[Rfam]
RNA sequence: AGGCUGUAAUGGCUUUCUGGUGGGAUGGGAUACGUUGAGAAUUCUGGCCAGGAACAAAUCCUUCCUCGCGGCUAGACACGGAUUGCACGCCCUUUGGCAAGGGAUAGUUCUCUAUUCCGCACCGUGCCCUGUUGUGGCAACCGUCUUUCCUCCGUCGUAAAUUUGUCCUGGGCAGAGCUGUCUGCCCGGAGGCGGGAGAGUCCGUUCUGAAGUGUCCCGGCUAUAAUAAAUCGAUCUUUGCGGGCAGCCCGUUGGCAGGAGGCGUGAGGAAUCCGUCUCUCUGUCUGGUGCGGCAAGGUAGUUCUGGGUCCUUAGGGGCUCCACCUUCACCGCUGUUAGGGGAGUUUUAUCCAGCGUCAGAAGGUGACCCGUGAUGGAGGCGGCCGGGAUAGCACAUAUCGAGUCGGAUAAUUGUGCAAGUUGAUCGCUUCGGCGGUUUAAUUUGGCGGUGCCAUCAGGAUUUACUCGCACAUUGUGGCCGUUCCCUCGGGGAUGGAGUGUGUCCUGAACCAUAUUUUU
Numbered sequence: 001a002g003g004c005u006g007u008a009a010u011g012g013c014u015u016u017c018u019g020g021u022g023g024g025a026u027g028g029g030a031u032a033c034g035u036u037g038a039g040a041a042u043u044c045u046g047g048c049c050a051g052g053a054a055c056a057a058a059u060c061c062u063u064c065c066u067c068g069c070g071g072c073u074a075g076a077c078a079c080g081g082a083u084u085g086c087a088c089g090c091c092c093u094u095u096g097g098c099a100a101g102g103g104a105u106a107g108u109u110c111u112c113u114a115u116u117c118c119g120c121a122c123c124g125u126g127c128c129c130u131g132u133u134g135u136g137g138c139a140a141c142c143g144u145c146u147u148u149c150c151u152c153c154g155u156c157g158u159a160a161a162u163u164u165g166u167c168c169u170g171g172g173c174a175g176a177g178c179u180g181u182c183u184g185c186c187c188g189g190a191g192g193c194g195g196g197a198g199a200g201u202c203c204g205u206u207c208u209g210a211a212g213u214g215u216c217c218c219g220g221c222u223a224u225a226a227u228a229a230a231u232c233g234a235u236c237u238u239u240g241c242g243g244g245c246a247g248c249c250c251g252u253u254g255g256c257a258g259g260a261g262g263c264g265u266g267a268g269g270a271a272u273c274c275g276u277c278u279c280u281c282u283g284u285c286u287g288g289u290g291c292g293g294c295a296a297g298g299u300a301g302u303u304c305u306g307g308g309u310c311c312u313u314a315g316g317g318g319c320u321c322c323a324c325c326u327u328c329a330c331c332g333c334u335g336u337u338a339g340g341g342g343a344g345u346u347u348u349a350u351c352c353a354g355c356g357u358c359a360g361a362a363g364g365u366g367a368c369c370c371g372u373g374a375u376g377g378a379g380g381c382g383g384c385c386g387g388g389a390u391a392g393c394a395c396a397u398a399u400c401g402a403g404u405c406g407g408a409u410a411a412u413u414g415u416g417c418a419a420g421u422u423g424a425u426c427g428c429u430u431c432g433g434c435g436g437u438u439u440a441a442u443u444u445g446g447c448g449g450u451g452c453c454a455u456c457a458g459g460a461u462u463u464a465c466u467c468g469c470a471c472a473u474u475g476u477g478g479c480c481g482u483u484c485c486c487u488c489g490g491g492g493a494u495g496g497a498g499u500g501u502g503u504c505c506u507g508a509a510c511c512a513u514a515u516u517u518u519u
Stems, first nucleotide, its partner, number of pairs: 001015004020513004028505007036468003039463003135454004143450003147446002170187007204405001206403001208401003212395004216388007235378003238374002241371004249292001250290004254285003258280007266273002307312001322366006333360003341352003